[Rfam]
RNA sequence: UGUCAACGACAGGGGCGCCGUAUGGCUGAGAUGUGCGGAUGCACGGUCCCUUAGACCUGAUCUAGAUAAUGCUAGCGUAGGGAGUCUGUAUUUCAAAAUU
Numbered sequence: 001u002g003u004c005a006a007c008g009a010c011a012g013g014g015g016c017g018c019c020g021u022a023u024g025g026c027u028g029a030g031a032u033g034u035g036c037g038g039a040u041g042c043a044c045g046g047u048c049c050c051u052u053a054g055a056c057c058u059g060a061u062c063u064a065g066a067u068a069a070u071g072c073u074a075g076c077g078u079a080g081g082g083a084g085u086c087u088g089u090a091u092u093u094c095a096a097a098a099u100u
Stems, first nucleotide, its partner, number of pairs: 008086003011051004016045001017026003033044004056081004062075004